RNA sequence: GGCGUGAGUAGAAGCGGUCAGCAGCUCAGGCUGCGGGACAUUGCUCCAGCC
Numbered sequence: 001g002g003c004g005u006g007a008g009u010a011g012a013a014g015c016g017g018u019c020a021g022c023a024g025c026u027c028a029g030g031c032u033g034c035g036g037g038a039c040a041u042u043g044c045u046c047c048a049g050c051c
Stems, first nucleotide, its partner, number of pairs: 006046005015036001018038002021034005
RNA: Xanthine riboswitch aptamer (NMT1 RNA)